[Rfam]
RNA sequence: CCCCGAUAAAGGCAAACUUCGAGAAAUCGGAGGACGCAAAGCUAUAGGGGCUACGGUAGAAUAUUCUACUAUGCCAGCCAGUUACCGAA
Numbered sequence: 001c002c003c004c005g006a007u008a009a010a011g012g013c014a015a016a017c018u019u020c021g022a023g024a025a026a027u028c029g030g031a032g033g034a035c036g037c038a039a040a041g042c043u044a045u046a047g048g049g050g051c052u053a054c055g056g057u058a059g060a061a062u063a064u065u066c067u068a069c070u071a072u073g074c075c076a077g078c079c080a081g082u083u084a085c086c087g088a089a
Stems, first nucleotide, its partner, number of pairs: 012037002017032006040083004047079002049075003056069004
c-di-GMP-I riboswitch aptamer: an 89-nucleotide sequence from [Anoxybacillus] calidus. Taxonomically the source falls in Paranoxybacillus (Bacteria, Bacillota, Bacilli, Anoxybacillaceae). Pairs were carried over by alignment from the consensus structure, which is taken from published work. It scores 81 bits against the family's covariance model.